[Rfam]
RNA sequence: UGGAGGACUGAGAAGGUGAGGCAGGUCUGCCCAUGCUGCCUUCCACCGGUUAAGACCUCCAAGAGAGAAGGGCUGCCCGGGCGGAGGAUGUCCCUCUGCCACUCUUGGAGGGACAGUGUUGCGCUGGCCGACAUCUG
Numbered sequence: 001u002g003g004a005g006g007a008c009u010g011a012g013a014a015g016g017u018g019a020g021g022c023a024g025g026u027c028u029g030c031c032c033a034u035g036c037u038g039c040c041u042u043c044c045a046c047c048g049g050u051u052a053a054g055a056c057c058u059c060c061a062a063g064a065g066a067g068a069a070g071g072g073c074u075g076c077c078c079g080g081g082c083g084g085a086g087g088a089u090g091u092c093c094c095u096c097u098g099c100c101a102c103u104c105u106u107g108g109a110g111g112g113a114c115a116g117u118g119u120u121g122c123g124c125u126g127g128c129c130g131a132c133a134u135c136u137g
Stems, first nucleotide, its partner, number of pairs: 002060005015047004019041006080129003085125002089121002096116003100112001102111002